[Rfam]
Notes: The family of this 91-nucleotide RNA sequence from Callipepla squamata is "Retrovirus direct repeat 1 (dr1)". Taxonomically the source falls in Callipepla (Eukaryota, Deuterostomia, Dinosauria, Neognathae).

RNA sequence: UGUAACAGGAUAAGGCAUACCUGAGAGGACAAUAGCAUGUAUAGGCGCAAUGCGGGGAUAUCGGGAUGUACGCGAGUAGUGUCCUCUCAAG
Numbered sequence: 001u002g003u004a005a006c007a008g009g010a011u012a013a014g015g016c017a018u019a020c021c022u023g024a025g026a027g028g029a030c031a032a033u034a035g036c037a038u039g040u041a042u043a044g045g046c047g048c049a050a051u052g053c054g055g056g057g058a059u060a061u062c063g064g065g066a067u068g069u070a071c072g073c074g075a076g077u078a079g080u081g082u083c084c085u086c087u088c089a090a091g
Stems, first nucleotide, its partner, number of pairs: 001012003023088009042078002046074002052069003
About the family: This family represents the direct repeat 1 (dr1) element commonly found in the 3' UTR of Avian sarcoma, Rous sarcoma and Avian leukosis viruses (Alpharetroviruses and Avian type C retroviruses). dr1 is required for efficient viral replication and is thought to be involved in genomic RNA packaging although this may not be its only role.
Its family is annotated with viral genome replication in the Gene Ontology.